[Rfam]
RNA sequence: UGCAGGUGAUGUCUGUCUCACGAUGGUCUGCCAAGCCUGAGGCUGUGAGGAGAAGCCCUGAGGGCUCUGCUGAUGCACAGGG
Dot-bracket structure: ((((.....................................................................)))).....
Rfam assigns this 82-nucleotide RNA from Calypte anna to the family "Small nucleolar RNA SNORD35". Lineage of the source: Eukaryota > Metazoa > Euteleostomi > Dipnotetrapodomorpha > Calypte. By type it is a C/D-box small nucleolar RNA. On this family, see Nicoloso et al., J Mol Biol 1996: "Intron-encoded, antisense small nucleolar RNAs: the characterization of nine novel species points to their direct role as guides for the 2'-O-ribose methylation of rRNAs". The family's consensus secondary structure was predicted with PFOLD.